[Rfam]
RNA sequence: AACCGGACUAGGUCGGGCAGUUAGGCCCUGCUCUCCACCCGCACCACGGUCUUCAGCGGGGACCGAACCCUGGGCGCGUCCGGACAGACCGGCACGGGCCCCGCAAGCCAACGUCGAAGCCUCGUCCGUCGGGGGCGGCGGUCCGCGGGCGUUCGUCCGCAGGGACGACCGGCCGCGGUUAGUCGGCGGCAGUCCGUCAGGCGCGGAAGCGAGCAGCGGACCGCCGGACAGCCAUCGCUCGACGGGUCGCGGGGUGGAGGAGGCACGCGGGCUUCCCCGUGCUGGAACGCCGGGCAACCUCGGGCGUCCGUCU
Numbered sequence: 001a002a003c004c005g006g007a008c009u010a011g012g013u014c015g016g017g018c019a020g021u022u023a024g025g026c027c028c029u030g031c032u033c034u035c036c037a038c039c040c041g042c043a044c045c046a047c048g049g050u051c052u053u054c055a056g057c058g059g060g061g062a063c064c065g066a067a068c069c070c071u072g073g074g075c076g077c078g079u080c081c082g083g084a085c086a087g088a089c090c091g092g093c094a095c096g097g098g099c100c101c102c103g104c105a106a107g108c109c110a111a112c113g114u115c116g117a118a119g120c121c122u123c124g125u126c127c128g129u130c131g132g133g134g135g136c137g138g139c140g141g142u143c144c145g146c147g148g149g150c151g152u153u154c155g156u157c158c159g160c161a162g163g164g165a166c167g168a169c170c171g172g173c174c175g176c177g178g179u180u181a182g183u184c185g186g187c188g189g190c191a192g193u194c195c196g197u198c199a200g201g202c203g204c205g206g207a208a209g210c211g212a213g214c215a216g217c218g219g220a221c222c223g224c225c226g227g228a229c230a231g232c233c234a235u236c237g238c239u240c241g242a243c244g245g246g247u248c249g250c251g252g253g254g255u256g257g258a259g260g261a262g263g264c265a266c267g268c269g270g271g272c273u274u275c276c277c278c279g280u281g282c283u284g285g286a287a288c289g290c291c292g293g294g295c296a297a298c299c300u301c302g303g304g305c306g307u308c309c310g311u312c313u
Stems, first nucleotide, its partner, number of pairs: 001313001004310005011064004015033006038060005069304006078295004082290001089285010100271005107264003112259001114257001119255007126245008134236002137233002140229001141180001143178006150171002153168006183227007193220005202211003